[Rfam]
RNA sequence: AUGCAUGCUACUACCCUGGGCAGACCUGAUGGAAAUGAAGUAACAGCUCCGUGCAUGUGUUACAUGGAACUGCUGUCCAGUGUUGCAAAUCUGACUGUUUUUUCAGAUCUGAUCUGUGUCAAAUUAGUGACAGCUAUAUUA
Numbered sequence: 001a002u003g004c005a006u007g008c009u010a011c012u013a014c015c016c017u018g019g020g021c022a023g024a025c026c027u028g029a030u031g032g033a034a035a036u037g038a039a040g041u042a043a044c045a046g047c048u049c050c051g052u053g054c055a056u057g058u059g060u061u062a063c064a065u066g067g068a069a070c071u072g073c074u075g076u077c078c079a080g081u082g083u084u085g086c087a088a089a090u091c092u093g094a095c096u097g098u099u100u101u102u103u104c105a106g107a108u109c110u111g112a113u114c115u116g117u118g119u120c121a122a123a124u125u126a127g128u129g130a131c132a133g134c135u136a137u138a139u140u141a
Stems, first nucleotide, its partner, number of pairs: 003058006010052002018049004023044001026040002072134006081121002084118004089113001093109002